The family of this 75-nucleotide RNA is "Gut-1 RNA". By type it is a small RNA.
RNA sequence: CAACGAAAUAAAUCCUGUCGGAUUUGUGAAAUGCGCUUCGCGCGUGAAAUAUGGCUUCGCCAAGUGAAAUGCCUG
Numbered sequence: 001c002a003a004c005g006a007a008a009u010a011a012a013u014c015c016u017g018u019c020g021g022a023u024u025u026g027u028g029a030a031a032u033g034c035g036c037u038u039c040g041c042g043c044g045u046g047a048a049a050u051a052u053g054g055c056u057u058c059g060c061c062a063a064g065u066g067a068a069a070u071g072c073c074u075g
Stems, first nucleotide, its partner, number of pairs: 008027008031045005049065002052062004

Notes: The sequence is in the family's curated seed alignment.